[Rfam]
RNA: SAM (S-adenosyl methionine) riboswitch aptamer
RNA sequence: AAUCACGAGUCCCCGCCGAUGCAGCCCUGGCUGGCGGGACGGCAACCCUCUCACGCAGUAGUGGGGUGCUCCAGGUGAUGAUUCGGUCGCUCGGACCACCCCGGGUGACAAGUACAGCGU
Numbered sequence: 001a002a003u004c005a006c007g008a009g010u011c012c013c014c015g016c017c018g019a020u021g022c023a024g025c026c027c028u029g030g031c032u033g034g035c036g037g038g039a040c041g042g043c044a045a046c047c048c049u050c051u052c053a054c055g056c057a058g059u060a061g062u063g064g065g066g067u068g069c070u071c072c073a074g075g076u077g078a079u080g081a082u083u084c085g086g087u088c089g090c091u092c093g094g095a096c097c098a099c100c101c102c103g104g105g106u107g108a109c110a111a112g113u114a115c116a117g118c119g120u
Base pairs, nucleotide, nucleotide: 001083002082003081004080009040012038013037014036015035016034023032024031041070042069043068046066047065048064050061051060086109087108088107089106090105091104092103093102094101